[Rfam]
RNA sequence: CAAGAGAGUAGAAGCGGUCAGGGCUCCCGCCCGGGACAUUGCUCUCCAA
Numbered sequence: 001c002a003a004g005a006g007a008g009u010a011g012a013a014g015c016g017g018u019c020a021g022g023g024c025u026c027c028c029g030c031c032c033g034g035g036a037c038a039u040u041g042c043u044c045u046c047c048a049a
Stems, first nucleotide, its partner, number of pairs: 005045006015034001018036002021032004

The record is a 49-nucleotide sequence from Halotalea alkalilenta, which matches "Xanthine riboswitch aptamer (NMT1 RNA)" in Rfam. Rfam links the family to the GO term purine nucleobase binding. It scores 53 bits against the family's covariance model.